[Rfam]
A member of the RNA family "Vault RNA" from Hemibagrus wyckioides, 94 nucleotides long.
This family of RNAs are found as part of the enigmatic vault ribonucleoprotein complex. The complex consists of a major vault protein (MVP), two minor vault proteins (VPARP and TEP1), and several small untranslated RNA molecules.
RNA sequence: GCGUCAGCUUAGCUAAACGGUUACUUCACGCUGAUUGUUAAUCUAACCCCCUGGGUAAACCAGGUUCGAACCGCUGGCGCUGUCUGACGUUUUU
Numbered sequence: 001g002c003g004u005c006a007g008c009u010u011a012g013c014u015a016a017a018c019g020g021u022u023a024c025u026u027c028a029c030g031c032u033g034a035u036u037g038u039u040a041a042u043c044u045a046a047c048c049c050c051c052u053g054g055g056u057a058a059a060c061c062a063g064g065u066u067c068g069a070a071c072c073g074c075u076g077g078c079g080c081u082g083u084c085u086g087a088c089g090u091u092u093u094u
Base pairs, nucleotide, nucleotide: 002089003088004087005086006085007084012078013077014076015075018073019072020071025070026069027068

The organism belongs to Hemibagrus, within Eukaryota.